[Rfam]
RNA sequence: UGGCUGUAAUGGUCGAAGUGGAAGGCGGCUCUUGCUAUUCUUAUUUCCCGCUGUCCCAUGUCCGAGUGUGAUUUAUUACGCUCGACCCAGUGCGUCGCCCAGUGCGAACGUUGCGGUGGUCGCCCACUCGUAUGGGAAACCUACGAUGCUGGUACCCCCUUGCGGCCCUAAGCAAUUGGAGAUGAUACUUCAGGGAGGCUUCACUCUGCAGAGGCAUCUUCACCGUCGCGUGGCGGACUGGAUUACGAUCGUACUGGGUUGGGGCAGCAUUUGAGAUGAAGCAGCCAACUUCUAUUUUU
Numbered sequence: 001u002g003g004c005u006g007u008a009a010u011g012g013u014c015g016a017a018g019u020g021g022a023a024g025g026c027g028g029c030u031c032u033u034g035c036u037a038u039u040c041u042u043a044u045u046u047c048c049c050g051c052u053g054u055c056c057c058a059u060g061u062c063c064g065a066g067u068g069u070g071a072u073u074u075a076u077u078a079c080g081c082u083c084g085a086c087c088c089a090g091u092g093c094g095u096c097g098c099c100c101a102g103u104g105c106g107a108a109c110g111u112u113g114c115g116g117u118g119g120u121c122g123c124c125c126a127c128u129c130g131u132a133u134g135g136g137a138a139a140c141c142u143a144c145g146a147u148g149c150u151g152g153u154a155c156c157c158c159c160u161u162g163c164g165g166c167c168c169u170a171a172g173c174a175a176u177u178g179g180a181g182a183u184g185a186u187a188c189u190u191c192a193g194g195g196a197g198g199c200u201u202c203a204c205u206c207u208g209c210a211g212a213g214g215c216a217u218c219u220u221c222a223c224c225g226u227c228g229c230g231u232g233g234c235g236g237a238c239u240g241g242a243u244u245a246c247g248a249u250c251g252u253a254c255u256g257g258g259u260u261g262g263g264g265c266a267g268c269a270u271u272u273g274a275g276a277u278g279a280a281g282c283a284g285c286c287a288a289c290u291u292c293u294a295u296u297u298u299u
Base pairs, nucleotide, nucleotide: 001015002014003013004012016297017296018295019294020293021292022291023290024286025285026284028282029281030280033279036275038273050268051267052266053265054264055263056262065082066081067080068079069078070077071076088256090254091253092252093251094250095248096247097246099241100240101239102238103237105235106234108231109230110229111228113226114225115224116223118157119156122153123152124151125148126147128146129145130144131143132142134141135140168172177222178221179220180219181218182217183216188213189212190211195206196205197204
RNA: Fungal signal recognition particle RNA
Organism: Ophiostoma piceae